[Rfam]
The record is a 74-nucleotide RNA sequence from Physeter macrocephalus, which matches "Small nucleolar RNA SNORD113/SNORD114 family" in Rfam.
The family is grouped with related families in Rfam's "SNORD74 clan".
Rfam describes the family as follows. The imprinted human domain at 14q32 contains two clusters of tandemly repeated small nucleolar RNAs named 14q(I) and 14q(II) snoRNAs. These two clusters are named SNORD113 and SNORD114 respectively in the HGNC approved gene symbol nomenclature. The snoRNAs found in both clusters are clearly related and are represented here by a single family. These snoRNAs are intron encoded and are processed from the tissue-specific non-coding human MEG8 RNA, which lies downstream of the imprinted genes DLK1 and GTL2. snoRNAs 14q(I) and 14q(II) differ from previously identified C/D box snoRNAs in their expression profiles and lack of complementarity to rRNA and snRNA. Homologues of these snoRNAs are found in the imprinted non-coding mouse transcript Rian, and in the rat non-coding Bsr (brain-specific repetitive) RNA.
It is annotated as a C/D-box small nucleolar RNA.

RNA sequence: UGGAUCGAUGAUGAUUUCUGGUCAUCAAUAUGAGUGAUAUACAGUGAAUACUUGUCUGGAAUUCUGAGCUCUGA
Numbered sequence: 001u002g003g004a005u006c007g008a009u010g011a012u013g014a015u016u017u018c019u020g021g022u023c024a025u026c027a028a029u030a031u032g033a034g035u036g037a038u039a040u041a042c043a044g045u046g047a048a049u050a051c052u053u054g055u056c057u058g059g060a061a062u063u064c065u066g067a068g069c070u071c072u073g074a
Stems, first nucleotide, its partner, number of pairs: 002072003006068001